[Rfam]
RNA sequence: AGUAACGGAUUACUUUGUGGUGUAGCGUAACGGUAAUUGUCCUCCUCAUAUUUGCGGCAGCGUAGUCUGCCGCUUU
Numbered sequence: 001a002g003u004a005a006c007g008g009a010u011u012a013c014u015u016u017g018u019g020g021u022g023u024a025g026c027g028u029a030a031c032g033g034u035a036a037u038u039g040u041c042c043u044c045c046u047c048a049u050a051u052u053u054g055c056g057g058c059a060g061c062g063u064a065g066u067c068u069g070c071c072g073c074u075u076u
Stems, first nucleotide, its partner, number of pairs: 007042004011035004054073007

About this RNA: The record is a 76-nucleotide RNA sequence from Salmonella enterica, which matches "PinT (STnc440) Hfq binding RNA" in Rfam. The source organism's lineage runs through Bacteria, Pseudomonadota, Salmonella, Salmonella enterica and Salmonella enterica subsp. enterica serovar Choleraesuis.